[Rfam]
RNA: Small nucleolar RNA snR43
Organism: Hansenula ciferrii
RNA sequence: AUCUCCUGUUUCUGCCCCAUGUUCUUUAUGCAUCAAUAGAUUAAUGGGUUCUAGUAUGGAGAAGAAUAAGCCUAAUGAUUUGAUUUAAUUUUCUUUUACGUGUUGAUACGAUGUUUAAAGAAGUUUUAUUGAAUUGUUAGGAUCGUGUUACCGAGAUAUCUGUUUUGAAUCUUGAUUUAUAUUUAAAAAUCUUGGUUUAAGAGUUUUGGAACUACAUUU
Numbered sequence: 001a002u003c004u005c006c007u008g009u010u011u012c013u014g015c016c017c018c019a020u021g022u023u024c025u026u027u028a029u030g031c032a033u034c035a036a037u038a039g040a041u042u043a044a045u046g047g048g049u050u051c052u053a054g055u056a057u058g059g060a061g062a063a064g065a066a067u068a069a070g071c072c073u074a075a076u077g078a079u080u081u082g083a084u085u086u087a088a089u090u091u092u093c094u095u096u097u098a099c100g101u102g103u104u105g106a107u108a109c110g111a112u113g114u115u116u117a118a119a120g121a122a123g124u125u126u127u128a129u130u131g132a133a134u135u136g137u138u139a140g141g142a143u144c145g146u147g148u149u150a151c152c153g154a155g156a157u158a159u160c161u162g163u164u165u166u167g168a169a170u171c172u173u174g175a176u177u178u179a180u181a182u183u184u185a186a187a188a189a190u191c192u193u194g195g196u197u198u199a200a201g202a203g204u205u206u207u208g209g210a211a212c213u214a215c216a217u218u219u
Base pairs, nucleotide, nucleotide: 003061004060005059006058016048017047018046019045020043021042023040024039025038071141072140073139074138075137076136077135078134079133080132081131082130084128087125088124089123090122091121092120147212148211149210153207154206155205156204157203167198168197169196170195171194174191177189178188180186